[Rfam]
RNA sequence: AGCUCAUCGAGAGGGACUGAGGGAACGGCCCGUUGAAGUCCCGGCAACCGCCGCGCAAGCCUCCGAUCGCCCGCCAGGGUUUCGGAUCUGCGCGGUGCGGUGCCAAAUCCGUCCUUGGUCGAGAUCCGGCCUCGGGAAGAUGAGAA
Numbered sequence: 001a002g003c004u005c006a007u008c009g010a011g012a013g014g015g016a017c018u019g020a021g022g023g024a025a026c027g028g029c030c031c032g033u034u035g036a037a038g039u040c041c042c043g044g045c046a047a048c049c050g051c052c053g054c055g056c057a058a059g060c061c062u063c064c065g066a067u068c069g070c071c072c073g074c075c076a077g078g079g080u081u082u083c084g085g086a087u088c089u090g091c092g093c094g095g096u097g098c099g100g101u102g103c104c105a106a107a108u109c110c111g112u113c114c115u116u117g118g119u120c121g122a123g124a125u126c127c128g129g130c131c132u133c134g135g136g137a138a139g140a141u142g143a144g145a146a
Base pairs, nucleotide, nucleotide: 003144004143005142006141007140008139013042014041015040016039017038021031022030023029025112026111027110028109043104044103045102046101048100049099050096051095052094053093054092055091056090057089108138113135114134117131118130119129120128121127

The record is a 146-nucleotide RNA sequence from Nocardioides marmoriginsengisoli, which matches "SAM riboswitch aptamer (S box leader)" in Rfam.